[Rfam]
RNA sequence: CUUGAUUUAUCGCGAACAGCUUCCUGCUUUGAAAUGCACUCUCAGCGCUGGUGUUUAUUGUAUGAAGCUCAAAGGACAAUGAAGCCCUUGACAGAAAGGUCAGGAGGGUGAACCGUGAGCGGGACUCAACUCUGGCAGCGUCAAGCCGAAGGCGGAG
Numbered sequence: 001c002u003u004g005a006u007u008u009a010u011c012g013c014g015a016a017c018a019g020c021u022u023c024c025u026g027c028u029u030u031g032a033a034a035u036g037c038a039c040u041c042u043c044a045g046c047g048c049u050g051g052u053g054u055u056u057a058u059u060g061u062a063u064g065a066a067g068c069u070c071a072a073a074g075g076a077c078a079a080u081g082a083a084g085c086c087c088u089u090g091a092c093a094g095a096a097a098g099g100u101c102a103g104g105a106g107g108g109u110g111a112a113c114c115g116u117g118a119g120c121g122g123g124a125c126u127c128a129a130c131u132c133u134g135g136c137a138g139c140g141u142c143a144a145g146c147c148g149a150a151g152g153c154g155g156a157g
Stems, first nucleotide, its partner, number of pairs: 002019003006015002028073005034063005040057001088103005104127003114119001131150001133148004
Description
This 157-nucleotide RNA from Candidatus Magnetomorum sp. HK-1 belongs to the Rfam family "Group II catalytic intron D1-D4-7". Group II introns are found in rRNA, tRNA and mRNA of organelles in fungi, plants and protists, and also in mRNA in bacteria. Its family is annotated with Group II intron splicing in the Gene Ontology. A reference for the family is Bonen and Vogel (2001), "The ins and outs of group II introns", Trends Genet. The pairing is the family consensus, mapped onto this sequence. A search with the family's covariance model found it, with a score of 62 bits.